[Rfam]
RNA sequence: GCGGUUCCGGUUCACGUCGGCCCGGCAGGGCGGCGACCCGGCGACC
Numbered sequence: 001g002c003g004g005u006u007c008c009g010g011u012u013c014a015c016g017u018c019g020g021c022c023c024g025g026c027a028g029g030g031c032g033g034c035g036a037c038c039c040g041g042c043g044a045c046c
Stems, first nucleotide, its partner, number of pairs: 003046003007041004015035005021030003
Dot-bracket structure: ..(((.((((....(((((.(((....))))))))..))))..)))

This 46-nucleotide sequence belongs to the Rfam family "L31-Actinobacteria ribosomal protein leader". It is annotated as a cis-regulatory leader. The literature on the family includes a 2020 paper in BMC Microbiol by Eckert and Weinberg, "Discovery of 20 novel ribosomal leader candidates in bacteria and archaea". Clan: Ribosomal Protein L31 Leader clan.